RNA sequence: UUGAAGAAUUUGAAGACUUGGACUUGCAAACUUGAAGAAGUUGAAAACUUCAACUUGCAGACUUGGAGAAUUUGAAGACUUCAGCU
Number, nucleotide and partner (000 for none) at each position: 001u084002u083003g082004a081005a080006g079007a000008a000009u076010u075011u074012g073013a072014a071015g000016a000017c068018u067019u066020g000021g064022a000023c000024u000025u059026g058027c057028a056029a000030a000031c000032u053033u052034g051035a050036a049037g048038a000039a000040g000041u000042u000043g000044a000045a000046a000047a000048c037049u036050u035051c034052a033053a032054c000055u000056u028057g027058c026059a025060g000061a000062c000063u000064u021065g000066g019067a018068g017069a000070a000071u014072u013073u012074g011075a010076a009077g000078a000079c006080u005081u004082c003083a002084g001085c000086u000
RNA: MIR8024 microRNA precursor family
Organism: Solanum commersonii